The record is a 368-nucleotide sequence from Clostridium sp. CAG:265, which matches "Bacterial RNase P class A" in Rfam. The source organism's lineage runs through Bacteria, Bacillota, Clostridia, Eubacteriales and Clostridium. Rfam classes the family as a ribozyme. Ribonuclease P (RNase P) is a ubiquitous endoribonuclease, found in archaea, bacteria and eukarya as well as chloroplasts and mitochondria. Its best characterised activity is the generation of mature 5'-ends of tRNAs by cleaving the 5'-leader elements of precursor-tRNAs. Cellular RNase Ps are ribonucleoproteins. RNA from bacterial RNase Ps retains its catalytic activity in the absence of the protein subunit, i.e. it is a ribozyme.
RNA sequence: CGAGUGAUACGUGCAAUCGCUGCUAGCUUUAAGCUAGGAGAGGAAAGUCGGAGCUCCAAAGGGCAGGGUGCUGGCUAACGGCCAGUCAAGGCGACUUGAAGGAUAGUGCAACAGAGAUAUACCGCCAGAAAAUCUUAGGAUUUGAGUUUGCUUAAAGCAAUUGGUAAGGGUGGAAAGGUGAUGGUAAGAGCUCACCAGCGGUAUGGAGACAUAUCGGCUAUGUAAACCCCACCUGGAGCAAGACCGAGUAAUGGCUUUAUGGGGCGGCCCGUCCCGCCAUGUGGUGUGUCGCUUGAGCUUGCUGGCAACAGUAAGCCUAGAUAGAUGAUUGCUUAAUACAGAACUCCGCUUAUGGAUUAUCUCGCAAC
Number, nucleotide and partner (000 for none) at each position: 001c364002g363003a362004g361005u000006g000007a358008u000009a000010c355011g353012u000013g332014c331015a330016a329017u328018c327019g000020c040021u039022g000023c037024u036025a035026g034027c033028u032029u000030u000031a000032a028033g027034c026035u025036a024037g023038g000039a021040g020041a000042g000043g000044a000045a351046a350047g349048u000049c348050g347051g346052a345053g344054c238055u237056c236057c235058a000059a000060a000061g270062g269063g268064c267065a000066g234067g233068g232069u231070g230071c085072u084073g083074g082075c081076u000077a000078a000079c000080g000081g075082c074083c073084a072085g071086u100087c098088a097089a096090g095091g000092c000093g000094a000095c090096u089097u088098g087099a000100a086101g229102g228103a000104u000105a000106g227107u226108g223109c222110a221111a000112c000113a000114g000115a000116g000117a000118u000119a000120u000121a000122c169123c168124g165125c164126c163127a162128g161129a000130a000131a000132a000133u000134c000135u000136u000137a000138g000139g000140a000141u000142u000143u000144g000145a000146g000147u000148u000149u000150g000151c000152u000153u000154a000155a000156a000157g000158c000159a000160a000161u128162u127163g126164g125165u124166a000167a000168g123169g122170g000171u000172g000173g000174a000175a000176a000177g196178g195179u194180g193181a192182u000183g191184g000185u000186a000187a000188g000189a000190g000191c183192u181193c180194a179195c178196c177197a000198g218199c216200g215201g214202u213203a212204u211205g210206g000207a000208g000209a000210c205211a204212u203213a202214u201215c200216g199217g000218c198219u000220a000221u110222g109223u108224a000225a000226a107227c106228c102229c101230c070231a069232c068233c067234u066235g057236g056237a055238g054239c000240a000241a000242g290243a289244c288245c000246g000247a000248g000249u000250a000251a000252u279253g278254g277255c276256u000257u000258u000259a000260u000261g275262g274263g273264g272265c271266g000267g064268c063269c062270c061271g265272u264273c263274c262275c261276g255277c254278c253279a252280u000281g000282u000283g000284g000285u000286g000287u000288g244289u243290c242291g000292c000293u000294u000295g000296a000297g316298c315299u314300u313301g312302c311303u310304g309305g000306c000307a000308a000309c304310a303311g302312u301313a300314a299315g298316c297317c000318u000319a000320g000321a000322u000323a000324g000325a000326u000327g018328a017329u016330u015331g014332c013333u000334u000335a000336a000337u000338a000339c000340a000341g000342a000343a000344c053345u052346c051347c050348g049349c047350u046351u045352a000353u011354g000355g010356a000357u000358u007359a000360u000361c004362u003363c002364g001365c000366a000367a000368c000